[Rfam]
RNA sequence: UCGGGGAGUAAGUUGAUGGGGUCCCAGGUUGAUAUUGAUCCAGGGACUACGUCAACUACUUGCCUGA
Numbered sequence: 001u002c003g004g005g006g007a008g009u010a011a012g013u014u015g016a017u018g019g020g021g022u023c024c025c026a027g028g029u030u031g032a033u034a035u036u037g038a039u040c041c042a043g044g045g046a047c048u049a050c051g052u053c054a055a056c057u058a059c060u061u062g063c064c065u066g067a
Stems, first nucleotide, its partner, number of pairs: 004064002007061002011057008020048006027041002
RNA: mir-1990 microRNA precursor family